[Rfam]
RNA sequence: GCAGAGUCGUGUAGCGCCGAUUUGUAACCCGAGCGGGGGCAACAGGGUGGUGGAAUGGUGGGAUCUGGUUGAUGGGUGGGGUGUAGCAGUGCCAAGUCUGGCUUGUCCAUUUCAAGUUAGUAGGGGGUUGAGCCAUAUGAUUCGGGCGAAGGCUCGAGUCAACUGGCCUCCUAAAGUGGAGGACACCGCGUCAGGCUGGCUUCACAGAGCAGCGAUUACCUCUCGCCCUUAACAGUGGAAGGAUUACAAGCCGGUGCGCGCUACGCCCACCGUGCUCAGCAAGCAGAGCCAUCAUCAAACCACCAUCUCU
Numbered sequence: 001g002c003a004g005a006g007u008c009g010u011g012u013a014g015c016g017c018c019g020a021u022u023u024g025u026a027a028c029c030c031g032a033g034c035g036g037g038g039g040c041a042a043c044a045g046g047g048u049g050g051u052g053g054a055a056u057g058g059u060g061g062g063a064u065c066u067g068g069u070u071g072a073u074g075g076g077u078g079g080g081g082u083g084u085a086g087c088a089g090u091g092c093c094a095a096g097u098c099u100g101g102c103u104u105g106u107c108c109a110u111u112u113c114a115a116g117u118u119a120g121u122a123g124g125g126g127g128u129u130g131a132g133c134c135a136u137a138u139g140a141u142u143c144g145g146g147c148g149a150a151g152g153c154u155c156g157a158g159u160c161a162a163c164u165g166g167c168c169u170c171c172u173a174a175a176g177u178g179g180a181g182g183a184c185a186c187c188g189c190g191u192c193a194g195g196c197u198g199g200c201u202u203c204a205c206a207g208a209g210c211a212g213c214g215a216u217u218a219c220c221u222c223u224c225g226c227c228c229u230u231a232a233c234a235g236u237g238g239a240a241g242g243a244u245u246a247c248a249a250g251c252c253g254g255u256g257c258g259c260g261c262u263a264c265g266c267c268c269a270c271c272g273u274g275c276u277c278a279g280c281a282a283g284c285a286g287a288g289c290c291a292u293c294a295u296c297a298a299a300c301c302a303c304c305a306u307c308u309c310u
Base pairs, nucleotide, nucleotide: 001040002039004023005022006021007020008019009018028037029036030035045308046307047306048305049304050303051302052301053300056297057296059294060293061292062289064287065286066285067284069282070281071280073278074277075276076275077274078273079268080267081266082265083264084263085262086261087260089259090258091257093256094255098254099253100252101251102250103249104248105247106246107242108241110240111239112238113237114236116233117232118231119230124229125228126227127226128225130170131169132168133166134165135164138161139160140159141158142157143156144155145154146153147152171176178223179222180221181220182219189214190213191212196207197206198205

Plant signal recognition particle RNA: a 310-nucleotide sequence from Elaeis guineensis. Taxonomically the source falls in Elaeis (Eukaryota, Tracheophyta, commelinids, Arecaceae). The base pairs follow the family's consensus structure, which is taken from published work. Rfam 15.1 lists 4,988 matches to the family in 266 species.